[Rfam]
RNA sequence: UAGCCAUAAUUUCACCUCUCUAUCAGGUGGUUUGUGGUUAGGGCGGGGGUGGUACGCCAAUACCGUCCCCGCCCGCUU
Numbered sequence: 001u002a003g004c005c006a007u008a009a010u011u012u013c014a015c016c017u018c019u020c021u022a023u024c025a026g027g028u029g030g031u032u033u034g035u036g037g038u039u040a041g042g043g044c045g046g047g048g049g050u051g052g053u054a055c056g057c058c059a060a061u062a063c064c065g066u067c068c069c070c071g072c073c074c075g076c077u078u
Stems, first nucleotide, its partner, number of pairs: 004037003009032001013029005041074014
The record is a 78-nucleotide RNA sequence, which matches "Plasmid transferred anti-sense RNA" in Rfam. A reference for the family is Findeiss et al. (2010), "A novel family of plasmid-transferred anti-sense ncRNAs", RNA Biol.